[Rfam]
RNA: mir-67 microRNA precursor family
Organism: Dolichomitus sp. PSUC_FEM 10030005
RNA sequence: GCUCACGUUUACUCACUCAACCUGGGUGUGAUGCUUGCCCAUCAAAACAAACGGGCCGCAGUGGUCAUCACAACCUUUUUGAGUGAGCGAACGCGAGG
Numbered sequence: 001g002c003u004c005a006c007g008u009u010u011a012c013u014c015a016c017u018c019a020a021c022c023u024g025g026g027u028g029u030g031a032u033g034c035u036u037g038c039c040c041a042u043c044a045a046a047a048c049a050a051a052c053g054g055g056c057c058g059c060a061g062u063g064g065u066c067a068u069c070a071c072a073a074c075c076u077u078u079u080u081g082a083g084u085g086a087g088c089g090a091a092c093g094c095g096a097g098g
Stems, first nucleotide, its partner, number of pairs: 008090002012087009024075002027072007